[Rfam]
RNA sequence: AUAUUAGAAUAAUUAUAUAUAUUAUAUAUAAAGUAGUGCCGAGGGCUAAGGCCCGAACACGUUAAACGUUUAUUCGUGUACGAUCCUCUGCGAGUUGUUUAUCUUCACAGCAGACGAACGAAUGUGAGGAGUUUGGAGCAUUUUUAAAAUGGGCCAACUUUGUUUAUGCUU
Numbered sequence: 001a002u003a004u005u006a007g008a009a010u011a012a013u014u015a016u017a018u019a020u021a022u023u024a025u026a027u028a029u030a031a032a033g034u035a036g037u038g039c040c041g042a043g044g045g046c047u048a049a050g051g052c053c054c055g056a057a058c059a060c061g062u063u064a065a066a067c068g069u070u071u072a073u074u075c076g077u078g079u080a081c082g083a084u085c086c087u088c089u090g091c092g093a094g095u096u097g098u099u100u101a102u103c104u105u106c107a108c109a110g111c112a113g114a115c116g117a118a119c120g121a122a123u124g125u126g127a128g129g130a131g132u133u134u135g136g137a138g139c140a141u142u143u144u145u146a147a148a149a150u151g152g153g154c155c156a157a158c159u160u161u162g163u164u165u166a167u168g169c170u171u
Base pairs, nucleotide, nucleotide: 009073010072011071012070013031014030015029016028017027018026036060037059038058043054044053045052046051088113089112090111091110115128118125119124133157134156135155136154